The family of this 492-nucleotide part of an RNA from Colletotrichum asianum is "Eukaryotic large subunit ribosomal RNA". Taxonomically the source falls in Colletotrichum gloeosporioides species complex (Eukaryota, Opisthokonta, leotiomyceta, Glomerellales). Pairs were carried over by alignment from the consensus structure, which is taken from published work. Rfam links the family to the GO terms structural constituent of ribosome and ribosome.

RNA sequence: UCUACUAAAGUUUCCCUUAGGAUAGUAGUAUUAAACUUAGUUUUAUAAAGUAAAGCAAAUAAUUAGGGACUUAGGGGCGCUAUAUUGCCUUUAUCUAUUCUUAAACUUUAAAUAUAUAAGAAGCCUUUAUUACUUAAUUAAAUAUAGGUAUUUAAAUAUAUUAAUACUAAUAGGCUAUUUUUAGUAAGUAGAACUAGCGAUAUAGGAUAAACUAAAUAUAAGGUUAAGGUACUAGAGUAGAUGCUUAUUAGAUACUAUAAAAGGUAUUAGUAUAUCUUAAUAGUAGGAUAGUAGCUAUAGAAGUUAGAAUCUACUAAGGAUUAUAUAAUAACUUACCUACUAAAUAUACUAGCUUUAAAAAUAGAUAGCGCUUAAGCGUCUUACUUAUACUUUACCUUUAGUAUAGAAAUAAUAUACUAAGGAGUAGGUAGACGUAGAGGUUAUAAUAAAGCUUAAGGUAUAAGCUUAAGUAGAAUAGCCUCUAGUAUAGAU
Numbered sequence: 001u002c003u004a005c006u007a008a009a010g011u012u013u014c015c016c017u018u019a020g021g022a023u024a025g026u027a028g029u030a031u032u033a034a035a036c037u038u039a040g041u042u043u044u045a046u047a048a049a050g051u052a053a054a055g056c057a058a059a060u061a062a063u064u065a066g067g068g069a070c071u072u073a074g075g076g077g078c079g080c081u082a083u084a085u086u087g088c089c090u091u092u093a094u095c096u097a098u099u100c101u102u103a104a105a106c107u108u109u110a111a112a113u114a115u116a117u118a119a120g121a122a123g124c125c126u127u128u129a130u131u132a133c134u135u136a137a138u139u140a141a142a143u144a145u146a147g148g149u150a151u152u153u154a155a156a157u158a159u160a161u162u163a164a165u166a167c168u169a170a171u172a173g174g175c176u177a178u179u180u181u182u183a184g185u186a187a188g189u190a191g192a193a194c195u196a197g198c199g200a201u202a203u204a205g206g207a208u209a210a211a212c213u214a215a216a217u218a219u220a221a222g223g224u225u226a227a228g229g230u231a232c233u234a235g236a237g238u239a240g241a242u243g244c245u246u247a248u249u250a251g252a253u254a255c256u257a258u259a260a261a262a263g264g265u266a267u268u269a270g271u272a273u274a275u276c277u278u279a280a281u282a283g284u285a286g287g288a289u290a291g292u293a294g295c296u297a298u299a300g301a302a303g304u305u306a307g308a309a310u311c312u313a314c315u316a317a318g319g320a321u322u323a324u325a326u327a328a329u330a331a332c333u334u335a336c337c338u339a340c341u342a343a344a345u346a347u348a349c350u351a352g353c354u355u356u357a358a359a360a361a362u363a364g365a366u367a368g369c370g371c372u373u374a375a376g377c378g379u380c381u382u383a384c385u386u387a388u389a390c391u392u393u394a395c396c397u398u399u400a401g402u403a404u405a406g407a408a409a410u411a412a413u414a415u416a417c418u419a420a421g422g423a424g425u426a427g428g429u430a431g432a433c434g435u436a437g438a439g440g441u442u443a444u445a446a447u448a449a450a451g452c453u454u455a456a457g458g459u460a461u462a463a464g465c466u467u468a469a470g471u472a473g474a475a476u477a478g479c480c481u482c483u484a485g486u487a488u489a490g491a492u
Stems, first nucleotide, its partner, number of pairs: 001432006011024001013022003027168007041121007053109001054107002060103003065098001067096003072093006079086001123149004128144004174198004179193005203214003219394004224389001228385003237382001239381001242378003262356003267352009283340005289313003295307002314318001319334001324331001396422009435484010451471002457466003